This 120-nucleotide sequence belongs to the Rfam family "LOOT RNA". The base pairs follow the family's consensus structure, which is taken from published work.
RNA sequence: UGCCUAACCCGUAGCCUUCCGUUACGGUAUGGCUUAAACCCACCACAGUAGAGACCUCCUCGUUAGGAGCACCUGUGGUGGGUCCCAUCUCGAAAGGGAUGGUGGGUGGCGCAAGCCAUC
Dot-bracket structure: .(((....(((((((.....)))))))...))).....((((((((((....(..((((......))))..)))))))))))..(((((((....)))))))..((((((....))))))